[Rfam]
RNA sequence: GUAAAUUAGCUUAAAUAUCACACAUACAUCGACACAUUUUUCGGGGUGUCUGCAAAGAAUUAUUCUGAGUGGAUCGAGAACUGGGAUGUAUGGAGGCCUAAC
Numbered sequence: 001g002u003a004a005a006u007u008a009g010c011u012u013a014a015a016u017a018u019c020a021c022a023c024a025u026a027c028a029u030c031g032a033c034a035c036a037u038u039u040u041u042c043g044g045g046g047u048g049u050c051u052g053c054a055a056a057g058a059a060u061u062a063u064u065c066u067g068a069g070u071g072g073a074u075c076g077a078g079a080a081c082u083g084g085g086a087u088g089u090a091u092g093g094a095g096g097c098c099u100a101a102c
Stems, first nucleotide, its partner, number of pairs: 023092008035083002038080006048074005

t44 RNA: a 102-nucleotide RNA sequence from Paraglaciecola arctica.
It scores 76 bits against the family's covariance model.
On this family, see Tjaden et al., Nucleic Acids Res 2002: "Transcriptome analysis of Escherichia coli using high-density oligonucleotide probe arrays".
Pairs were carried over by alignment from the consensus structure, which was predicted with LocARNA.
The family's RNA type in Rfam is small RNA.